Shown here is a 102-nucleotide RNA from Salisediminibacterium beveridgei, a member of the family "Purine riboswitch aptamer". Gene Ontology term of the family: purine nucleobase biosynthetic process. Rfam 15.1 lists 4,097 matches to the family in 1,411 species.
RNA sequence: GAAGAUAAUCGAACAGUUCCUCAUAUAAAUCCGGGAAUAAGGCCCGGGAGUCUCUACCUGCUGACCGUAAAUCAGCGGACUAUGAGGGGUAAACGAAUGUAA
Numbered sequence: 001g002a003a004g005a006u007a008a009u010c011g012a013a014c015a016g017u018u019c020c021u022c023a024u025a026u027a028a029a030u031c032c033g034g035g036a037a038u039a040a041g042g043c044c045c046g047g048g049a050g051u052c053u054c055u056a057c058c059u060g061c062u063g064a065c066c067g068u069a070a071a072u073c074a075g076c077g078g079a080c081u082a083u084g085a086g087g088g089g090u091a092a093a094c095g096a097a098u099g100u101a102a
Stems, first nucleotide, its partner, number of pairs: 018088008030048006058078007